Shown here is a 122-nucleotide RNA from Halopseudomonas bauzanensis, a member of the family "Ribosomal S15 leader". A reference for the family is Benard et al. (1996), "Pseudoknot and translational control in the expression of the S15 ribosomal protein", Biochimie. The match comes from Rfam's covariance-model search (52 bits). NCBI's taxonomy places the organism under Bacteria, Pseudomonadota, Gammaproteobacteria, Pseudomonadales, Halopseudomonas. Its Rfam clan is "Ribosomal Protein S15 Leader clan". Rfam's curators write: The E. coli Ribosomal S15 gene 5' UTR can form two alternative structures. One that is a series of three hairpins, The other includes a pseudoknot. This structure causes translational regulation of the S15 protein. The alignment of this family contains only the final two hairpins which are conserved in other species, and also includes the complete region that forms the alternate structures. Rfam classes the family as a cis-regulatory leader.
RNA sequence: GGUCAUUGCUCGAUUCAAAACACGGAACCCCGGUUCCGGCCUGUUACCUCAGAGGAAAAGCUGUCAUGGCACUGAGCGUUGAAGAAAAAGCUGCAAUCGUAUCCGAGUAUGCCCGCGGUGAA
Numbered sequence: 001g002g003u004c005a006u007u008g009c010u011c012g013a014u015u016c017a018a019a020a021c022a023c024g025g026a027a028c029c030c031c032g033g034u035u036c037c038g039g040c041c042u043g044u045u046a047c048c049u050c051a052g053a054g055g056a057a058a059a060g061c062u063g064u065c066a067u068g069g070c071a072c073u074g075a076g077c078g079u080u081g082a083a084g085a086a087a088a089a090g091c092u093g094c095a096a097u098c099g100u101a102u103c104c105g106a107g108u109a110u111g112c113c114c115g116c117g118g119u120g121a122a
Stems, first nucleotide, its partner, number of pairs: 007026001010025003048076005054070001